[Rfam]
RNA sequence: AUGAAUAUUGUGGGAGAGACUAAAUGAAAUAAUUUAGCACCGAAGGAGCAAAACCAAAAAGUUGGGUACUAAUCUCUCAGGUAAAAGGACUACAAUAGGACG
Dot-bracket structure: .....((((((((......((((..........)))).(((((..(((.........................))))).))).......)))))))).....
RNA: Glycine riboswitch aptamer
Organism: Bacillus sp. FJAT-27231